[Rfam]
RNA sequence: ACCCCAUGAUAUAAGCCGGCAGAACAAAUAUUUUUCUAGUUUUUUCUGUGACUAUGAUUGGGAACAUAAAAUCUAUUCCGAAGUGUGUAUAUUUUAGAGCGUUACACCUGCUUUGAAAUAAAGAUUUAUUCAGAAAAUA
Number, nucleotide and partner (000 for none) at each position: 001a000002c000003c000004c000005c000006a000007u000008g000009a000010u000011a000012u000013a000014a000015g000016c000017c000018g000019g049020c048021a047022g046023a045024a044025c000026a042027a000028a000029u000030a000031u000032u000033u000034u000035u000036c000037u000038a000039g000040u000041u000042u026043u000044u024045u023046c022047u021048g020049u019050g000051a000052c000053u000054a000055u000056g000057a000058u000059u000060g000061g000062g000063a000064a000065c000066a000067u000068a000069a000070a000071a000072u000073c000074u000075a000076u000077u000078c133079c000080g131081a130082a000083g000084u000085g000086u000087g000088u000089a000090u120091a119092u118093u117094u116095u115096a114097g113098a112099g111100c110101g000102u000103u000104a000105c000106a000107c000108c000109u000110g100111c099112u098113u097114u096115g095116a094117a093118a092119u091120a090121a000122a000123g000124a000125u000126u000127u000128a000129u000130u081131c080132a000133g078134a000135a000136a000137a000138u000139a000
RNA: Small nucleolar RNA snoR639/H1